Rfam assigns this 65-nucleotide sequence from Bacteroides sp. CAG:633 to the family "Bacteroidetes FopS (family of paralogous sRNAs)". The family has 12 seed sequences and 822 matches in Rfam 15.1. It scores 59 bits against the family's covariance model. A reference for the family is Ruttiger et al. (2025), "The global RNA-binding protein RbpB is a regulator of polysaccharide utilization in Bacteroides thetaiotaomicron", Nat Commun. From the family's description: The RNA-binding protein RbpB and BTncRNA_FopS sRNA are involved in the post-transcription regulation of polysaccharide utilisation loci (PUL). FopS sRNAs function as post-transcriptional repressors by binding to the vicinity of the start codon of the first mRNA of target PUL polycistrons, typically corresponding to the cognate SusC homolog, impeding translation of the respective glycan transporter.

[Rfam]
RNA sequence: AUGUUUUUCAUAGUAUUAGAUUUAAAAUUAACAAAGGUUGGGCUCGGCGGAGCCCUUUUUUUAUG
Numbered sequence: 001a002u003g004u005u006u007u008u009c010a011u012a013g014u015a016u017u018a019g020a021u022u023u024a025a026a027a028u029u030a031a032c033a034a035a036g037g038u039u040g041g042g043c044u045c046g047g048c049g050g051a052g053c054c055c056u057u058u059u060u061u062u063a064u065g
Stems, first nucleotide, its partner, number of pairs: 040055006